[Rfam]
RNA sequence: GUUGAUGGCGGCGAUGAAGCUCGCCAUGAACCGCCGCCCCGGCUGAUGGCUUCUACCACGUG
Numbered sequence: 001g002u003u004g005a006u007g008g009c010g011g012c013g014a015u016g017a018a019g020c021u022c023g024c025c026a027u028g029a030a031c032c033g034c035c036g037c038c039c040c041g042g043c044u045g046a047u048g049g050c051u052u053c054u055a056c057c058a059c060g061u062g
Stems, first nucleotide, its partner, number of pairs: 010025004016053006033043003

Background: Fluoride riboswitch aptamer (crcB RNA motif): a 62-nucleotide sequence from Mycobacterium sinensis. Rfam 15.1 lists 2,293 matches to the family in 1,982 species. The match comes from Rfam's covariance-model search (50 bits). Its family is annotated with positive regulation of gene expression and response to fluoride in the Gene Ontology.